mir-24 microRNA precursor family: a 70-nucleotide sequence from Astyanax mexicanus. The family's consensus secondary structure was predicted with RNAalifold. About the family: This family represents the microRNA (miRNA) mir-24 family. miRNAs are transcribed as ~70nt precursors (modelled here) and subsequently processed by the Dicer enzyme to give a ~22nt product. In this case the mature sequence comes from the 3' arm of the precursor. The extents of the hairpin precursors are not generally known and are estimated based on hairpin prediction. For this family Rfam cites "microRNAs: tiny regulators with great potential" (Ambros, Cell, 2001). NCBI's taxonomy places the organism under Eukaryota, Metazoa, Bilateria, Vertebrata, Astyanax. Its family is annotated with miRNA-mediated post-transcriptional gene silencing and RISC complex in the Gene Ontology.

[Rfam]
RNA sequence: UCCUCCUGAACCUACUGAACAGAUAUCAGUUGGUAAAGCUCAUACUGGCUCAGUUCAGCAGGAACCGGAG
Dot-bracket structure: ..((((.(..(((.((((((.((..(((((.............))))).)).)))))).)))..).))))